Description:
The family of this 100-nucleotide RNA sequence from Sporosarcina sp. HYO08 is "Purine riboswitch aptamer". Pairs were carried over by alignment from the consensus structure, which is taken from published work. Rfam links the family to the GO term purine nucleobase biosynthetic process. The organism belongs to Sporosarcina, within Bacteria.
RNA sequence: UUGUAGAGUAAAAAGAACCCACAUAUAUACUUAAGAAUUGGCUUAAGUGUUUCUACCAAGACACCGUAAUGUCUGGACUAUGCGGGAAAGCGACUUUUAG
Numbered sequence: 001u002u003g004u005a006g007a008g009u010a011a012a013a014a015g016a017a018c019c020c021a022c023a024u025a026u027a028u029a030c031u032u033a034a035g036a037a038u039u040g041g042c043u044u045a046a047g048u049g050u051u052u053c054u055a056c057c058a059a060g061a062c063a064c065c066g067u068a069a070u071g072u073c074u075g076g077a078c079u080a081u082g083c084g085g086g087a088a089a090g091c092g093a094c095u096u097u098u099a100g
Base pairs, nucleotide, nucleotide: 018086019085020084022082023081024080025079029048030047031046032045033044034043035042057076059074060073061072062071063070